[Rfam]
RNA sequence: GCCUUGUCCUGCGCCUCCUUUCGGCGGGCCGCCGCUUCAUCGGCAGGAUAGGCGAAUUGUACGCUGUAGUAGAGAUCAGGCUGUUCCU
Dot-bracket structure: ((((...............................................(((.......))).............)))).......

Rfam assigns this 88-nucleotide sequence from Rhizobium etli to the family "Rhizobiales sRNA Atu_Ti3".
The organism belongs to Rhizobium etli, within Bacteria.
Rfam classes the family as a small RNA.
The family's consensus secondary structure was predicted with WAR.